Small nucleolar RNA SNORA68: a 133-nucleotide sequence from Branchiostoma belcheri. It scores 56 bits against the family's covariance model. Rfam classes the family as an H/ACA-box small nucleolar RNA. Rfam's curators write: U68 is a member of the H/ACA class of small nucleolar RNAs (snoRNAs) which act as guides in the the modification of uridines to pseudouridines. The organism belongs to Branchiostoma, within Eukaryota.

[Rfam]
RNA sequence: CUUGCACUUCAAACUCGUUGAGCCUCUAUUUAUAAUUGGAUGGCUCAAGUCACAAGGUGCAGAUAGAAAUAAUGCUUGUCGCCUUCCCUGACUUGAACAGUGUCAGUGGAAGUGAAUUGAAGCUGUUACAAUC
Dot-bracket structure: .((((((((..........(((((..(...........)..)))))........))))))))........(..((((.....((((((((((.........))))).))))).......))))..).......